[Rfam]
Source information
MIR9783 microRNA precursor family: a 95-nucleotide RNA from Triticum aestivum. Rfam 15.1 lists 12 matches to the family in 4 species. The base pairs follow the family's consensus structure, which was predicted with RNAalifold. The organism belongs to Triticum, within Eukaryota.

RNA sequence: AGUUUUUCUCUAAGUAUCGGUGCUUAUUUGUAGAGGGUAGACGCUUAAUUAAGCGUCUGUCCUAUAGAAAUAAGCACCGGUGCUUAAGAAGAACU
Numbered sequence: 001a002g003u004u005u006u007u008c009u010c011u012a013a014g015u016a017u018c019g020g021u022g023c024u025u026a027u028u029u030g031u032a033g034a035g036g037g038u039a040g041a042c043g044c045u046u047a048a049u050u051a052a053g054c055g056u057c058u059g060u061c062c063u064a065u066a067g068a069a070a071u072a073a074g075c076a077c078c079g080g081u082g083c084u085u086a087a088g089a090a091g092a093a094c095u
Base pairs, nucleotide, nucleotide: 003093004092005091006090007089008088009087012084014083015082016081017080018079019078022075023074025072026071027070028069029068031066032065034063035062036061039058040057041056042055043054044053